[Rfam]
RNA sequence: GUUCCGUCCUAAGUACUAGUGCCGUAGGUUAACUGAGAAGGAAAGUGAAGCUAGACUAUAGCUUCUCAGACCUGUAGUACUAGUACUUAA
Numbered sequence: 001g002u003u004c005c006g007u008c009c010u011a012a013g014u015a016c017u018a019g020u021g022c023c024g025u026a027g028g029u030u031a032a033c034u035g036a037g038a039a040g041g042a043a044a045g046u047g048a049a050g051c052u053a054g055a056c057u058a059u060a061g062c063u064u065c066u067c068a069g070a071c072c073u074g075u076a077g078u079a080c081u082a083g084u085a086c087u088u089a090a
Base pairs, nucleotide, nucleotide: 010089011088012087013086014085015084016083017082018081019080024075025074026073027072028071029070030069
A member of the RNA family "mir-252 microRNA precursor family" from Strongylocentrotus purpuratus, 90 nucleotides long. The family is grouped with related families in Rfam's "mir-252 microRNA precursor family". The sequence is in the family's curated seed alignment. The organism belongs to Strongylocentrotus, within Eukaryota.